[Rfam]
RNA: RAGATH-18 RNA
RNA sequence: ACUGUGGAGUGUACUAGAACUUGUGAGUAGCGUGUCAUUUGGAACCGCCAAAGCGUACACAAUGAAGCAGUAA
Numbered sequence: 001a002c003u004g005u006g007g008a009g010u011g012u013a014c015u016a017g018a019a020c021u022u023g024u025g026a027g028u029a030g031c032g033u034g035u036c037a038u039u040u041g042g043a044a045c046c047g048c049c050a051a052a053g054c055g056u057a058c059a060c061a062a063u064g065a066a067g068c069a070g071u072a073a
Base pairs, nucleotide, nucleotide: 001071002070003069004068005067009060010059011058012057013056022055023054024053030048031047032046035043036042